[Rfam]
RNA sequence: UCGAAUCUUUUUGCGGUCUGGGCUUUCUGUUUCUGCCCAAAUCUGGUCAGAAAGCCCUUACCACAAAAAGCGUUUG
Numbered sequence: 001u002c003g004a005a006u007c008u009u010u011u012u013g014c015g016g017u018c019u020g021g022g023c024u025u026u027c028u029g030u031u032u033c034u035g036c037c038c039a040a041a042u043c044u045g046g047u048c049a050g051a052a053a054g055c056c057c058u059u060a061c062c063a064c065a066a067a068a069a070g071c072g073u074u075u076g
Stems, first nucleotide, its partner, number of pairs: 007070007015062003020057004025052001027050002
Shown here is a 76-nucleotide RNA sequence from Chiloscyllium punctatum, a member of the family "mir-129 microRNA precursor family". Lineage of the source: Eukaryota > Elasmobranchii > Orectolobiformes > Hemiscylliidae > Chiloscyllium. A reference for the family is Lagos-Quintana et al. (2002), "Identification of tissue-specific microRNAs from mouse", Curr Biol. The family has 56 seed sequences and 1,242 matches in Rfam 15.1. Its family is annotated with synapse, gene silencing by miRNA and long-term synaptic potentiation in the Gene Ontology. The base pairs follow the family's consensus structure, which was predicted with RNAalifold. The match comes from Rfam's covariance-model search (76 bits).